Shown here is a 109-nucleotide RNA from Mucilaginibacter myungsuensis, a member of the family "SAM riboswitch aptamer (S box leader)". The SAM riboswitch is found upstream of a number of genes which code for proteins involved in methionine or cysteine biosynthesis in Gram-positive bacteria.
Nucleotides: 109
Base pairs, nucleotide, nucleotide: 001109002108003107004106005105006104007103008102013043014042015041016040017039021032022031023030028073029072044067045066046065047064049063050062051060052059053058071101076098077097078096081093
Number, partner (000 for none) and nucleotide at each position: 001109u002108g003107c004106u005105u006104a007103u008102u009000g010000a011000g012000a013043a014042a015041g016040a017039c018000g019000g020000a021032g022031g023030g024000a025000u026000a027000c028073g029072a030023c031022c032021c033000u034000a035000c036000g037000a038000u039017g040016u041015c042014u043013u044067a045066g046065c047064a048000a049063c050062c051060u052059g053058u054000g055000c056000u057000u058053a059052c060051a061000a062050g063049g064047u065046g066045c067044u068000a069000c070000a071101u072029u073028c074000u075000a076098c077097c078096c079000u080000a081093a082000c083000c084000c085000c086000u087000u088000a089000a090000g091000g092000u093081u094000g095000u096078g097077g098076g099000a100000a101071a102008g103007a104006u105005a106004a107003g108002c109001g

Taxonomically the source falls in Mucilaginibacter (Bacteria, Pseudomonadati, Sphingobacteriia, Sphingobacteriales).